The record is a 106-nucleotide RNA from Astyanax mexicanus, which matches "mir-223 microRNA precursor family" in Rfam. A search with the family's covariance model found it, with a score of 84 bits. The organism belongs to Astyanax, within Eukaryota.

RNA sequence: CACGGUGUGUUAGACUCUUCUCUUUGAGUAUUUGACAGACUGUGUGUGACACUCGUUUUCGCUGGGUGUCAGUUUGUCAAAUACCCCAAGAGAGGGGUCAAUAUUC
Numbered sequence: 001c002a003c004g005g006u007g008u009g010u011u012a013g014a015c016u017c018u019u020c021u022c023u024u025u026g027a028g029u030a031u032u033u034g035a036c037a038g039a040c041u042g043u044g045u046g047u048g049a050c051a052c053u054c055g056u057u058u059u060c061g062c063u064g065g066g067u068g069u070c071a072g073u074u075u076g077u078c079a080a081a082u083a084c085c086c087c088a089a090g091a092g093a094g095g096g097g098u099c100a101a102u103a104u105u106c
Stems, first nucleotide, its partner, number of pairs: 020092004026086001028084014048070004053065002